[Rfam]
This 87-nucleotide sequence from Aeromicrobium sp. belongs to the Rfam family "ZMP/ZTP riboswitch aptamer (pfl RNA motif)".

RNA sequence: GAAGCUGGCCGCGACUGGCGUUGAGGUGGAUACCACCGGGGAGCGGCUGCAACCACGACAUCGGGACCGUUCGCCUGGGCCCCACGU
Numbered sequence: 001g002a003a004g005c006u007g008g009c010c011g012c013g014a015c016u017g018g019c020g021u022u023g024a025g026g027u028g029g030a031u032a033c034c035a036c037c038g039g040g041g042a043g044c045g046g047c048u049g050c051a052a053c054c055a056c057g058a059c060a061u062c063g064g065g066a067c068c069g070u071u072c073g074c075c076u077g078g079g080c081c082c083c084a085c086g087u
Stems, first nucleotide, its partner, number of pairs: 006049007015040002017075004026036004064082002067079002
Pairs were carried over by alignment from the consensus structure, which is taken from published work. For this family Rfam cites "Recognition of the bacterial alarmone ZMP through long-distance association of two RNA subdomains" (Jones and Ferre-D'Amare, Nat Struct Mol Biol, 2015). A search with the family's covariance model found it, with a score of 50 bits. The organism belongs to Aeromicrobium, within Bacteria.